[Rfam]
RNA sequence: CUGGGCGUCUGGAGACGGACGCUGAAUAUCGUGGAGAGGUCAGCAGAGGGCAUAGUAGGCGGCGCCACCGCCGAAGGCC
Numbered sequence: 001c002u003g004g005g006c007g008u009c010u011g012g013a014g015a016c017g018g019a020c021g022c023u024g025a026a027u028a029u030c031g032u033g034g035a036g037a038g039g040u041c042a043g044c045a046g047a048g049g050g051c052a053u054a055g056u057a058g059g060c061g062g063c064g065c066c067a068c069c070g071c072c073g074a075a076g077g078c079c
Stems, first nucleotide, its partner, number of pairs: 002026001004023008040047002049079003058072005
The family of this 79-nucleotide RNA from Thauera sp. 27 is "Group II catalytic intron D1-D4-1". Rfam links the family to the GO term Group II intron splicing. Rfam 15.1 lists 2,508 matches to the family in 1,144 species. Taxonomically the source falls in Thauera (Bacteria, Pseudomonadati, Pseudomonadota, Rhodocyclales). It scores 56 bits against the family's covariance model. Group II introns are found in rRNA, tRNA and mRNA of organelles in fungi, plants and protists, and also in mRNA in bacteria.